[Rfam]
RNA sequence: CUUUCAGACAUUCUCCGAACCGUUAGCCUAAGGAUUCGUCUCCGGAUCUAAGGCGACCGGUCCCGGGCAGUCGUAUGGCUGUCCAAGGGCUGGCUGAGAAAUCAGGCAACCUCCCGAAAUUUGGAAAGGAGUUCCCAAAUGAAAAAG
Dot-bracket structure: ..(.........((((..((((...(((...(((((((....)))))))..)))...))))...(((((((......)))))))..(((.((.((((....)))).)).)))((........))...)))).........)......